[Rfam]
RNA sequence: AGAGGUCGAGAAGGCAAGAUGUCGGCAUAGCUGAAUGUAUUUGAUUUUCGGCUAUGUCUCAUCAAGCCAGCUUAUACCUU
Numbered sequence: 001a002g003a004g005g006u007c008g009a010g011a012a013g014g015c016a017a018g019a020u021g022u023c024g025g026c027a028u029a030g031c032u033g034a035a036u037g038u039a040u041u042u043g044a045u046u047u048u049c050g051g052c053u054a055u056g057u058c059u060c061a062u063c064a065a066g067c068c069a070g071c072u073u074a075u076a077c078c079u080u
Stems, first nucleotide, its partner, number of pairs: 005075002008073003013068003018063004024058008
Description
Rfam assigns this 80-nucleotide RNA sequence from Sitophilus oryzae to the family "mir-31 microRNA precursor family". The family has 75 seed sequences and 1,181 matches in Rfam 15.1. For this family Rfam cites "Structure of pre-miR-31 reveals an active role in Dicer processing" (Ma et al., bioRxiv [Preprint], 2023). A search with the family's covariance model found it, with a score of 58 bits.